A member of the RNA family "Picornavirus internal ribosome entry site (IRES)" from Enterovirus betacoxsackie, 252 nucleotides long. For this family Rfam cites "Structural and functional analysis of the 5' untranslated region of coxsackievirus B3 RNA: In vivo translational and infectivity studies of full-length mutants" (Liu et al., Virology, 1999). The family's consensus secondary structure was predicted with PFOLD. The source organism's lineage runs through Viruses, Pisoniviricetes, Picornaviridae, Enterovirus and Enterovirus B.
RNA sequence: AUGGGACGCUUCAAUACAGACAUGGUGUGAAGAGUCUAUUGAAAUAAUUGAUAGUUAUCCGGCCCCUGAAUGCGGCUAAUCCUAACUGCGGAGCAGAUUCCCACAUGCCAGUGGGCAGUCUGUCGUAAUGGGUAACUCUGCAGCGGAACCGACUACUUUGGGUGUCCGUGUUUCCUUUUAUUCUUGUGCUGGCUGCUAAUGGUGACAAUUGAAAGAUUGUUACCAUAUAGCUAUUGGAUUGGCCACCCAGUG
Numbered sequence: 001a002u003g004g005g006a007c008g009c010u011u012c013a014a015u016a017c018a019g020a021c022a023u024g025g026u027g028u029g030a031a032g033a034g035u036c037u038a039u040u041g042a043a044a045u046a047a048u049u050g051a052u053a054g055u056u057a058u059c060c061g062g063c064c065c066c067u068g069a070a071u072g073c074g075g076c077u078a079a080u081c082c083u084a085a086c087u088g089c090g091g092a093g094c095a096g097a098u099u100c101c102c103a104c105a106u107g108c109c110a111g112u113g114g115g116c117a118g119u120c121u122g123u124c125g126u127a128a129u130g131g132g133u134a135a136c137u138c139u140g141c142a143g144c145g146g147a148a149c150c151g152a153c154u155a156c157u158u159u160g161g162g163u164g165u166c167c168g169u170g171u172u173u174c175c176u177u178u179u180a181u182u183c184u185u186g187u188g189c190u191g192g193c194u195g196c197u198a199a200u201g202g203u204g205a206c207a208a209u210u211g212a213a214a215g216a217u218u219g220u221u222a223c224c225a226u227a228u229a230g231c232u233a234u235u236g237g238a239u240u241g242g243c244c245a246c247c248c249a250g251u252g
Stems, first nucleotide, its partner, number of pairs: 004012003020026002034196002042194001045191002050183002060168003064162003073151003080147003086143007094122004098117001100115005123131003199226012
Dot-bracket structure: ...(((...))).......((...)).......((......(..((...((........(((.(((......(((....(((...(((((((.(((((.(((((......))))).).))))(((...))).....))))))).))).)))........)))...))).............))......))..)))..((((((((((((....))))))))))))..........................